[Rfam]
RNA sequence: GCGAAGUUUCAUCUACAGUGGAUAAGAUUUUUGUUCUUAGUGUAUACGAUCGUUGAAACAAAGUAGCAAUACCCAUUCCUUCUUUAGACGACAUGGGGUAUUGCUACUUU
Numbered sequence: 001g002c003g004a005a006g007u008u009u010c011a012u013c014u015a016c017a018g019u020g021g022a023u024a025a026g027a028u029u030u031u032u033g034u035u036c037u038u039a040g041u042g043u044a045u046a047c048g049a050u051c052g053u054u055g056a057a058a059c060a061a062a063g064u065a066g067c068a069a070u071a072c073c074c075a076u077u078c079c080u081u082c083u084u085u086a087g088a089c090g091a092c093a094u095g096g097g098g099u100a101u102u103g104c105u106a107c108u109u110u
Stems, first nucleotide, its partner, number of pairs: 008022005060110013074095002077091002080088001

Rfam assigns this 110-nucleotide RNA sequence from Musa balbisiana to the family "Plastid-psbA-1 3UTR RNA".
A search with the family's covariance model found it, with a score of 70 bits.
About the family: Plastid psbA-1 is a non-coding RNA (ncRNA) present in plastids. It was identified in inverted repeat sequences in the 3 prime untranslate region (3UTR) of photosystem II quinone-binding protein (psbA).
NCBI's taxonomy places the organism under Eukaryota, Streptophytina, Euphyllophyta, Zingiberales, Musa.